[Rfam]
A member of the RNA family "Bacterial large subunit ribosomal RNA" from Anaerolinea thermolimosa, 85 nucleotides of a longer RNA. Gene Ontology terms of the family: structural constituent of ribosome and ribosome. On this family, see Yusupov et al., Science 2001: "Crystal structure of the ribosome at 5.5 A resolution".
RNA sequence: AGUUGGAGGGCUAAUGGUGUGAUGGUGCUCUGCAGAGAUGCAGGUGCGCAGCGCCAGGCCUGACAGCGUGCCUCUUGGAGAAUGA
Numbered sequence: 001a002g003u004u005g006g007a008g009g010g011c012u013a014a015u016g017g018u019g020u021g022a023u024g025g026u027g028c029u030c031u032g033c034a035g036a037g038a039u040g041c042a043g044g045u046g047c048g049c050a051g052c053g054c055c056a057g058g059c060c061u062g063a064c065a066g067c068g069u070g071c072c073u074c075u076u077g078g079a080g081a082a083u084g085a
Stems, first nucleotide, its partner, number of pairs: 002067004008061005071084001073082001